[Rfam]
RNA sequence: GUUCCGCAGCCUUACUCAGGGCUAUUUUUUUUUUUUUUUUUUUUGCCUGGAAAGUGCUCUGGCAUUGCCUGAGGGUAGAUGAGAAAGUACAUAUCCCUCCCCAAUAAGAUAUUGUUUUCUUAUGGGGCCUACAAGUUGAGCUGACAGU
Numbered sequence: 001g002u003u004c005c006g007c008a009g010c011c012u013u014a015c016u017c018a019g020g021g022c023u024a025u026u027u028u029u030u031u032u033u034u035u036u037u038u039u040u041u042u043u044u045g046c047c048u049g050g051a052a053a054g055u056g057c058u059c060u061g062g063c064a065u066u067g068c069c070u071g072a073g074g075g076u077a078g079a080u081g082a083g084a085a086a087g088u089a090c091a092u093a094u095c096c097c098u099c100c101c102c103a104a105u106a107a108g109a110u111a112u113u114g115u116u117u118u119c120u121u122a123u124g125g126g127g128c129c130u131a132c133a134a135g136u137u138g139a140g141c142u143g144a145c146a147g148u
Base pairs, nucleotide, nucleotide: 003075004074005073007071008070009069011067017061018060019059020058021057023054025052026051027050028049086142087141088140090138091137099127100126101125102124103123106121107120108119109118
RNA: Small nucleolar RNA SNORA49